RNA sequence: UCCUUAUCUAGAGUCGGGGGAGGAAUCUGGUCCAGUGAUCCCGCAGCAACCGUUACAUAUAACAAGGUGCUAAUUCCAGCAAGCAUUUGCUUGAAAGAUGAGAG
Numbered sequence: 001u002c003c004u005u006a007u008c009u010a011g012a013g014u015c016g017g018g019g020g021a022g023g024a025a026u027c028u029g030g031u032c033c034a035g036u037g038a039u040c041c042c043g044c045a046g047c048a049a050c051c052g053u054u055a056c057a058u059a060u061a062a063c064a065a066g067g068u069g070c071u072a073a074u075u076c077c078a079g080c081a082a083g084c085a086u087u088u089g090c091u092u093g094a095a096a097g098a099u100g101a102g103a104g
Stems, first nucleotide, its partner, number of pairs: 001104001003102006013044001015043004022033003027079004045071004050067002052063004075096001080093005